[Rfam]
RNA sequence: GGACGGUGACGAUUAUAUAGUGAUUAGGUCUCGUUCGUCGUAACUGGCUUUUGUAGGCCUUGCCGACCAUCCUGAUAUAUCACCACCCAUAUUCCGAGUCC
Numbered sequence: 001g002g003a004c005g006g007u008g009a010c011g012a013u014u015a016u017a018u019a020g021u022g023a024u025u026a027g028g029u030c031u032c033g034u035u036c037g038u039c040g041u042a043a044c045u046g047g048c049u050u051u052u053g054u055a056g057g058c059c060u061u062g063c064c065g066a067c068c069a070u071c072c073u074g075a076u077a078u079a080u081c082a083c084c085a086c087c088c089a090u091a092u093u094c095c096g097a098g099u100c101c
Stems, first nucleotide, its partner, number of pairs: 001101004046061002048056001
A member of the RNA family "Small nucleolar RNA Z43" from Ziziphus jujuba, 101 nucleotides long. It is annotated as a C/D-box small nucleolar RNA.